[Rfam]
RNA sequence: GUCGGGGCUUCGGCCCGACCAAUAGGCGUCGCAGAGACGCUGUGACGCUGCUUGUAAUCCAUGUUGCUUUACGGAGGAUAUGGCUAUGAGAA
Numbered sequence: 001g002u003c004g005g006g007g008c009u010u011c012g013g014c015c016c017g018a019c020c021a022a023u024a025g026g027c028g029u030c031g032c033a034g035a036g037a038c039g040c041u042g043u044g045a046c047g048c049u050g051c052u053u054g055u056a057a058u059c060c061a062u063g064u065u066g067c068u069u070u071a072c073g074g075a076g077g078a079u080a081u082g083g084c085u086a087u088g089a090g091a092a
Stems, first nucleotide, its partner, number of pairs: 001019006008013001026048009051090006059083007067076003
Notes
The record is a 92-nucleotide RNA sequence from Methylocystis echinoides, which matches "Repression of heat shock gene expression (ROSE) element" in Rfam. The organism belongs to Methylocystis, within Bacteria. This family represents a 5' UTR cis-regulatory element found in heat shock mRNAs and is known as the ROSE (repression of heat shock gene expression) element. The ROSE element is a negative regulator of heat shock gene expression. The secondary structure is thought to be regulated by temperature. This regulation blocks access to the ribosome binding site under normal conditions. Rfam links the family to the GO terms response to temperature stimulus and regulation of translation.